[Rfam]
Nucleotides: 090
Stems, first nucleotide, its partner, number of pairs: 012038002017033004022029002041084004046080003049075003056069003
Number, partner (000 for none) and nucleotide at each position: 001000u002000a003000u004000a005000g006000a007000a008000a009000a010000a011000g012038g013037c014000a015000a016000g017033u018032c019031u020030g021000a022029u023028c024000g025000a026000a027000a028023g029022g030020c031019a032018g033017a034000u035000a036000c037013g038012c039000a040000a041084a042083g043082c044081c045000a046080c047079a048078g049075g050074c051073c052000u053000a054000c055000g056069g057068u058067a059000u060000g061000c062000a063000u064000u065000u066000u067058u068057a069056c070000u071000a072000u073051g074050g075049c076000a077000g078048c079047u080046g081044g082043g083042u084041u085000a086000c087000c088000u089000a090000a
A member of the RNA family "c-di-GMP-I riboswitch aptamer" from Lederbergia citrea, 90 nucleotides long. It scores 72 bits against the family's covariance model.